[Rfam]
RNA sequence: UAGAGGAAGAAGGCAAAUGCGAAGCAUUUAAAGAAUCCUUCCGACUAUAUGCCGCCGAACGAAGGAUAGGGGGCGAUACAAAAA
Numbered sequence: 001u002a003g004a005g006g007a008a009g010a011a012g013g014c015a016a017a018u019g020c021g022a023a024g025c026a027u028u029u030a031a032a033g034a035a036u037c038c039u040u041c042c043g044a045c046u047a048u049a050u051g052c053c054g055c056c057g058a059a060c061g062a063a064g065g066a067u068a069g070g071g072g073g074c075g076a077u078a079c080a081a082a083a084a
Base pairs, nucleotide, nucleotide: 009041010040011039012038013037016028017027018026019025051074052073053072055070056069060065
Dot-bracket structure: ........(((((..((((.....))))........))))).........(((.((...(....)...)).)))..........

Shown here is an 84-nucleotide RNA from Sporofaciens musculi, a member of the family "GA-cis RNA". The family's RNA type in Rfam is small RNA. Pairs were carried over by alignment from the consensus structure, which is taken from published work. Taxonomically the source falls in Sporofaciens (Bacteria, Bacillati, Bacillota, Clostridia).